[Rfam]
RNA sequence: UCCGCGCUAACGCUGAGUCCCGGAUGGUCCGGGAGCGGGGGACCCAAUUCUUGGGGCGAAUUGCGCGCGAGCGCAUAGGGCACCUUUCGGCCCGAGCCCGUCAGCUAACCUCGCAAGCGUCGAAGGGACGGGCA
Number, nucleotide and partner (000 for none) at each position: 001u000002c000003c000004g000005c000006g000007c000008u000009a000010a000011c119012g118013c117014u116015g000016a000017g000018u034019c033020c032021c031022g030023g000024a000025u000026g000027g000028u000029c000030c022031g021032g020033g019034a018035g114036c113037g112038g111039g110040g109041g000042a000043c000044c000045c053046a052047a000048u000049u000050c000051u000052u046053g045054g099055g098056g097057c000058g000059a000060a000061u000062u075063g074064c073065g072066c000067g000068c000069g000070a000071g000072c065073g064074c063075a062076u000077a000078g093079g092080g091081c090082a000083c000084c000085u000086u000087u000088c000089g000090g081091c080092c079093c078094g000095a000096g000097c056098c055099c054100g000101u000102c000103a000104g000105c000106u000107a000108a000109c040110c039111u038112c037113g036114c035115a000116a014117g013118c012119g011120u000121c000122g000123a000124a000125g000126g000127g000128a000129c000130g000131g000132g000133c000134a000
Rfam assigns this 134-nucleotide RNA from Desulfovibrio sp. X2 to the family "c-di-AMP riboswitch aptamer (ydaO/yuaA leader)".
The match comes from Rfam's covariance-model search (99 bits).
Taxonomically the source falls in Desulfovibrio (Bacteria, Pseudomonadati, Thermodesulfobacteriota, Desulfovibrionia).